A member of the RNA family "U12 minor spliceosomal RNA" from Drosophila albomicans, 244 nucleotides long. For this family Rfam cites "Pre-mRNA splicing: the discovery of a new spliceosome doubles the challenge" (Tarn and Steitz, Trends Biochem Sci, 1997). The match comes from Rfam's covariance-model search (64 bits). The organism belongs to Drosophila, within Eukaryota.

[Rfam]
RNA sequence: GUGCCAAAACAUAAUGAGUAAGGAAAACCAAUAUUGCCUUGCUAAUCGCUUGGCAGCUUGGCUUCUAGGCAGAGGAGCUUAACGCGCGAGCGUUCGCUCCUUGAAGCUCAAUUUUUGUGAGGGUACAGGUCGUCCCCAAGUUGCAUGCCCCUCGCACUGGCGGCGGCGGACCGGCGCCUACUUUGUGUCCGGGCUGCUGUUGCUGAUGUUUUGUGGGGCAUGUUUGGGUGAAGCGAUCUGCCCG
Numbered sequence: 001g002u003g004c005c006a007a008a009a010c011a012u013a014a015u016g017a018g019u020a021a022g023g024a025a026a027a028c029c030a031a032u033a034u035u036g037c038c039u040u041g042c043u044a045a046u047c048g049c050u051u052g053g054c055a056g057c058u059u060g061g062c063u064u065c066u067a068g069g070c071a072g073a074g075g076a077g078c079u080u081a082a083c084g085c086g087c088g089a090g091c092g093u094u095c096g097c098u099c100c101u102u103g104a105a106g107c108u109c110a111a112u113u114u115u116u117g118u119g120a121g122g123g124u125a126c127a128g129g130u131c132g133u134c135c136c137c138a139a140g141u142u143g144c145a146u147g148c149c150c151c152u153c154g155c156a157c158u159g160g161c162g163g164c165g166g167c168g169g170a171c172c173g174g175c176g177c178c179u180a181c182u183u184u185g186u187g188u189c190c191g192g193g194c195u196g197c198u199g200u201u202g203c204u205g206a207u208g209u210u211u212u213g214u215g216g217g218g219c220a221u222g223u224u225u226g227g228g229u230g231a232a233g234c235g236a237u238c239u240g241c242c243c244g
Base pairs, nucleotide, nucleotide: 004023005022008019034056035055036054037053038052041049057106058105059104061102121243122242123241124240127239128238129237130236131235132234133233136228137227139225140224142222143221147219148218149217150216151215